[Rfam]
RNA sequence: CUUCCUUUGCAGGUUGGGAUCAGUAGCAAUGUUCUUUUCUGCUGGAGUAUUGCACUUGUCCCGGCCUGUUAAGGGCAA
Numbered sequence: 001c002u003u004c005c006u007u008u009g010c011a012g013g014u015u016g017g018g019a020u021c022a023g024u025a026g027c028a029a030u031g032u033u034c035u036u037u038u039c040u041g042c043u044g045g046a047g048u049a050u051u052g053c054a055c056u057u058g059u060c061c062c063g064g065c066c067u068g069u070u071a072a073g074g075g076c077a078a
Stems, first nucleotide, its partner, number of pairs: 004074003009069006016062005022056003026053009
About this RNA: The record is a 78-nucleotide RNA from Astyanax mexicanus, which matches "mir-92 microRNA precursor family" in Rfam. It scores 74 bits against the family's covariance model. NCBI's taxonomy places the organism under Eukaryota, Metazoa, Ostariophysi, Acestrorhamphinae, Astyanax.